[Rfam]
RNA: Makes More Granules Regulator RNA (mmgR)
RNA sequence: UGCAGUCCCCGACGUCGGCGUUCCCUCCCUAAACUUGGGCCGCGCUUUCCGCGCUGUCCCUCUUUAUGUCUAAA
Numbered sequence: 001u002g003c004a005g006u007c008c009c010c011g012a013c014g015u016c017g018g019c020g021u022u023c024c025c026u027c028c029c030u031a032a033a034c035u036u037g038g039g040c041c042g043c044g045c046u047u048u049c050c051g052c053g054c055u056g057u058c059c060c061u062c063u064u065u066a067u068g069u070c071u072a073a074a
Stems, first nucleotide, its partner, number of pairs: 009018003037059004042054004